[Rfam]
RNA sequence: UUCGACAUAACGGGGAGCUCGCCGAAGCGGGCUGAGAGGGGGCUUCUUGGCUCCGACCCACCGAACCUGAUAUGGGUAAUGCCAACGAAGGGAGCAUCGCAUGACUGCGA
Number, nucleotide and partner (000 for none) at each position: 001u000002u000003c000004g000005a000006c000007a097008u096009a000010a000011c000012g059013g058014g057015g000016a000017g032018c031019u030020c029021g028022c000023c000024g000025a000026a000027g000028c021029g020030g019031g018032c017033u000034g000035a000036g000037a000038g000039g054040g053041g052042g051043c050044u000045u000046c000047u000048u000049g000050g043051c042052u041053c040054c039055g000056a000057c014058c013059c012060a000061c000062c000063g000064a000065a000066c091067c090068u089069g000070a000071u000072a000073u084074g083075g082076g000077u000078a000079a000080u000081g000082c075083c074084a073085a000086c000087g000088a000089a068090g067091g066092g000093a000094g000095c000096a008097u007098c000099g000100c000101a000102u000103g000104a000105c000106u000107g000108c000109g000110a000

The record is a 110-nucleotide RNA sequence from Slackia isoflavoniconvertens, which matches "TPP riboswitch aptamer (THI element)" in Rfam. Taxonomically the source falls in Slackia (Bacteria, Bacillati, Coriobacteriia, Eggerthellales). The match comes from Rfam's covariance-model search (58 bits).